Record summary:
Rfam assigns this 70-nucleotide RNA sequence to the family "tRNA". Its family is annotated with triplet codon-amino acid adaptor activity in the Gene Ontology. Rfam classes the family as a transfer RNA.
RNA sequence: AGGGGCUUAGGAUAAACUAGACCAAGGGCCUUCAAAGCCCUCAGCGGAGGUGAAAAUCCUCCAGCCCCUG
Number, nucleotide and partner (000 for none) at each position: 001a069002g068003g067004g066005g065006c064007u063008u000009a000010g023011g022012a000013u020014a000015a000016a000017c000018u000019a000020g013021a000022c011023c010024a000025a041026g040027g039028g038029c037030c000031u000032u000033c000034a000035a000036a000037g029038c028039c027040c026041u025042c000043a000044g000045c000046g062047g061048a060049g059050g058051u000052g000053a000054a000055a000056a000057u000058c050059c049060u048061c047062c046063a007064g006065c005066c004067c003068c002069u001070g000